[Rfam]
RNA sequence: UUAUAGUGUUACCUCCGAGCCAUGUAACCUGUAAUGUUAGAUUAUGGUUACUUGGCCGAUAGGGUUUACCUGGAAACGGGUAGGCCUCCCGUGCGGAAAGGAUGGUAAUUUAUUUGUUAU
Numbered sequence: 001u002u003a004u005a006g007u008g009u010u011a012c013c014u015c016c017g018a019g020c021c022a023u024g025u026a027a028c029c030u031g032u033a034a035u036g037u038u039a040g041a042u043u044a045u046g047g048u049u050a051c052u053u054g055g056c057c058g059a060u061a062g063g064g065u066u067u068a069c070c071u072g073g074a075a076a077c078g079g080g081u082a083g084g085c086c087u088c089c090c091g092u093g094c095g096g097a098a099a100g101g102a103u104g105g106u107a108a109u110u111u112a113u114u115u116g117u118u119a120u
Base pairs, nucleotide, nucleotide: 003114006111011106012105013104014102015101016100019056020055021054022053024051025050026049027048028047029046033043034042035041062087063086064085065084066083067082068081069080070079071078072077088096089095
Description
This 120-nucleotide RNA sequence from Desulforamulus ferrireducens belongs to the Rfam family "Molybdenum/Tungsten riboswitch aptamer (Moco RNA motif)". Rfam links the family to the GO terms tungstate binding, regulation of gene expression and molybdenum ion binding. NCBI's taxonomy places the organism under Bacteria, Bacillati, Clostridia, Peptococcaceae, Desulforamulus.